[Rfam]
RNA sequence: UGCAGAAUCAUCAUUGAGUCCAGCAUUGAUGAAAAGCCCUGUAGUUUCUCUUGGAUUUCUUCAUCAAUGCUGCACUCAAUCAUGUUUUCG
Numbered sequence: 001u002g003c004a005g006a007a008u009c010a011u012c013a014u015u016g017a018g019u020c021c022a023g024c025a026u027u028g029a030u031g032a033a034a035a036g037c038c039c040u041g042u043a044g045u046u047u048c049u050c051u052u053g054g055a056u057u058u059c060u061u062c063a064u065c066a067a068u069g070c071u072g073c074a075c076u077c078a079a080u081c082a083u084g085u086u087u088u089c090g
Stems, first nucleotide, its partner, number of pairs: 006087002009084003013080007021072008030063003
The family of this 90-nucleotide RNA from Camellia sinensis is "MIR397 microRNA precursor family". Gene Ontology terms of the family: RISC complex and miRNA-mediated post-transcriptional gene silencing. The base pairs follow the family's consensus structure, which was predicted with WAR. A search with the family's covariance model found it, with a score of 61 bits. NCBI's taxonomy places the organism under Eukaryota, Tracheophyta, Mesangiospermae, Gunneridae, Camellia sinensis. A reference for the family is Mica et al. (2009), "High throughput approaches reveal splicing of primary microRNA transcripts and tissue specific expression of mature microRNAs in Vitis vinifera", BMC Genomics.